The record is an 81-nucleotide RNA sequence from Betta splendens, which matches "Small nucleolar RNA SNORD53/SNORD92" in Rfam. The family is grouped with related families in Rfam's "SNORD52 clan". Lineage of the source: Eukaryota > Gnathostomata > Neoteleostei > Anabantoidei > Betta. The literature on the family includes a 1996 paper in Cell by Kiss-Laszlo et al., "Site-specific ribose methylation of preribosomal RNA: a novel function for small nucleolar RNAs".
[Rfam]
RNA sequence: GGGGUGUGAUGAUGCAUAAGAAAGGUUUCGCAUGCUGGACUGAAGUCCUGUGAUGUCACUUCCUCUUGGCUGUCUGACCCU
Number, nucleotide and partner (000 for none) at each position: 001g081002g080003g079004g078005u000006g000007u000008g000009a000010u000011g000012a000013u000014g000015c000016a000017u000018a000019a000020g000021a000022a000023a000024g000025g000026u000027u000028u000029c000030g000031c000032a000033u000034g000035c000036u000037g000038g000039a000040c000041u000042g000043a000044a000045g000046u000047c000048c000049u000050g000051u000052g000053a000054u000055g000056u000057c000058a000059c000060u000061u000062c000063c000064u000065c000066u000067u000068g000069g000070c000071u000072g000073u000074c000075u000076g000077a000078c004079c003080c002081u001